[Rfam]
RNA sequence: AUCGCGUUAUGUGACUGACGGAAGUAGAUUAACCACAGGGAGUAUAACCGUAGGAAGCCGACCGUCUGGGCGAAAGAA
Numbered sequence: 001a002u003c004g005c006g007u008u009a010u011g012u013g014a015c016u017g018a019c020g021g022a023a024g025u026a027g028a029u030u031a032a033c034c035a036c037a038g039g040g041a042g043u044a045u046a047a048c049c050g051u052a053g054g055a056a057g058c059c060g061a062c063c064g065u066c067u068g069g070g071c072g073a074a075a076g077a078a
Base pairs, nucleotide, nucleotide: 003050004049006048007047008046009045010044011043012042015039016038017066018065019064020063021062024036025035027033057071058070059069
RNA: ZMP/ZTP riboswitch aptamer (pfl RNA motif)